Rfam assigns this 150-nucleotide RNA sequence from Noviherbaspirillum autotrophicum to the family "Group II catalytic intron D1-D4-7". The base pairs follow the family's consensus structure. Rfam links the family to the GO term Group II intron splicing. The source organism's lineage runs through Bacteria, Pseudomonadati, Betaproteobacteria, Burkholderiales and Noviherbaspirillum.
RNA sequence: CCGAAUGUACGACCAUUUGUCACCUACUCAGGCCUGCGUUGCUGGUAACGGCGGGGUGGGAAGCCCUGAGGACAAUGUACCCCCACUUUGAUGGUGUCGAUUUCUUGCGAAAGGAUCGGCAGAGAUCGUUAGCAGCAAACGAUCAAGGGG
Numbered sequence: 001c002c003g004a005a006u007g008u009a010c011g012a013c014c015a016u017u018u019g020u021c022a023c024c025u026a027c028u029c030a031g032g033c034c035u036g037c038g039u040u041g042c043u044g045g046u047a048a049c050g051g052c053g054g055g056g057u058g059g060g061a062a063g064c065c066c067u068g069a070g071g072a073c074a075a076u077g078u079a080c081c082c083c084c085a086c087u088u089u090g091a092u093g094g095u096g097u098c099g100a101u102u103u104c105u106u107g108c109g110a111a112a113g114g115a116u117c118g119g120c121a122g123a124g125a126u127c128g129u130u131a132g133c134a135g136c137a138a139a140c141g142a143u144c145a146a147g148g149g150g
Stems, first nucleotide, its partner, number of pairs: 002019006028069005033060005039054006082094002086090001095121004105112002125143006